RNA sequence: UAAAUUGAACAGGGGAGCCUAUGGAUAGGCUGAGAGGAAGUUGCGAACUUCGACCCAUAUACCUGAUUUGGAUAAUGCCAACGUAGGGACGGAUGUGAAUUGUUUGC
Numbered sequence: 001u002a003a004a005u006u007g008a009a010c011a012g013g014g015g016a017g018c019c020u021a022u023g024g025a026u027a028g029g030c031u032g033a034g035a036g037g038a039a040g041u042u043g044c045g046a047a048c049u050u051c052g053a054c055c056c057a058u059a060u061a062c063c064u065g066a067u068u069u070g071g072a073u074a075a076u077g078c079c080a081a082c083g084u085a086g087g088g089a090c091g092g093a094u095g096u097g098a099a100u101u102g103u104u105u106g107c
Stems, first nucleotide, its partner, number of pairs: 006095002010091001012056003017030005037051005062087004068081004
Background
The family of this 107-nucleotide RNA sequence from Lachnospiraceae bacterium 5_1_57FAA is "TPP riboswitch aptamer (THI element)". Vitamin B(1) in its active form thiamin pyrophosphate (TPP) is an essential coenzyme that is synthesised by coupling of pyrimidine and thiazole moieties in bacteria. The base pairs follow the family's consensus structure, which is taken from published work. Gene Ontology term of the family: thiamine pyrophosphate binding. The organism belongs to Lachnospiraceae, within Bacteria.